[Rfam]
RNA sequence: ACAAGAUUAUAUAACUGGUGGAUUACAUGGAAUUAACCAUGGGGAAGUAUAAUCUUUAGUUAAAUCGCCCACCUGGAUAAUGAAU
Dot-bracket structure: ..((((((((((..(([[[[[.....((((......))))..))..)))))))))).......(((..]]]]]..))).......